[Rfam]
RNA sequence: UAUUUGUUUAUGACGGCCACAGCUUAAAGUACACACAGCUGUGACUUGAUUUGAAAAAAAUA
Numbered sequence: 001u002a003u004u005u006g007u008u009u010a011u012g013a014c015g016g017c018c019a020c021a022g023c024u025u026a027a028a029g030u031a032c033a034c035a036c037a038g039c040u041g042u043g044a045c046u047u048g049a050u051u052u053g054a055a056a057a058a059a060a061u062a
Base pairs, nucleotide, nucleotide: 001062002061003060004059005058015046016045018043019042020041021040022039023038024037029036030035
This 62-nucleotide sequence from Pteropus alecto belongs to the Rfam family "Selenocysteine insertion sequence 1". A search with the family's covariance model found it, with a score of 35 bits. The family's RNA type in Rfam is cis-regulatory element. The family has 61 seed sequences and 3,793 matches in Rfam 15.1.